A member of the RNA family "Glycine riboswitch aptamer" from a Frankiales bacterium, 100 nucleotides long. Its family is annotated with glycine biosynthetic process in the Gene Ontology. The match comes from Rfam's covariance-model search (62 bits).
[Rfam]
RNA sequence: CGAUCCCGCGCGGGAGAGUCCCCUCACCGCCAGUGCGGGGCGCCGAAGGAGCAAUCCUCCCCACCACCAACCUCUCAGGCCACCGGACCGCGCGGGUCAG
Numbered sequence: 001c002g003a004u005c006c007c008g009c010g011c012g013g014g015a016g017a018g019u020c021c022c023c024u025c026a027c028c029g030c031c032a033g034u035g036c037g038g039g040g041c042g043c044c045g046a047a048g049g050a051g052c053a054a055u056c057c058u059c060c061c062c063a064c065c066a067c068c069a070a071c072c073u074c075u076c077a078g079g080c081c082a083c084c085g086g087a088c089c090g091c092g093c094g095g096g097u098c099a100g
Stems, first nucleotide, its partner, number of pairs: 006095008020040004042080003045076002049074003